[Rfam]
RNA sequence: AGACUUGACCGGGCCCCUCUGGCGAUCUCUGCGGAUCGUGAUGUCGGUCACAUCAC
Numbered sequence: 001a002g003a004c005u006u007g008a009c010c011g012g013g014c015c016c017c018u019c020u021g022g023c024g025a026u027c028u029c030u031g032c033g034g035a036u037c038g039u040g041a042u043g044u045c046g047g048u049c050a051c052a053u054c055a056c
Stems, first nucleotide, its partner, number of pairs: 006050007022039007

Shown here is a 56-nucleotide RNA sequence from Paracoccus salipaludis, a member of the family "terC RNA". The base pairs follow the family's consensus structure, which is taken from published work. Rfam classes the family as a cis-regulatory element. A search with the family's covariance model found it, with a score of 52 bits.